[Rfam]
RNA: mir-9223 microRNA precursor family
RNA sequence: GGUGUUUCUUGGGUGACACACCCCGGAAUCUGGCUCCCGCCUCUCUGGUUCUGGGUGCAUCACCCAAGAACUGCC
Numbered sequence: 001g002g003u004g005u006u007u008c009u010u011g012g013g014u015g016a017c018a019c020a021c022c023c024c025g026g027a028a029u030c031u032g033g034c035u036c037c038c039g040c041c042u043c044u045c046u047g048g049u050u051c052u053g054g055g056u057g058c059a060u061c062a063c064c065c066a067a068g069a070a071c072u073g074c075c
Base pairs, nucleotide, nucleotide: 002074003073006070007069008068009067010066011065012064013063014062015061016060019057020056021055022054023053025052026051027050028049029048030047032045033044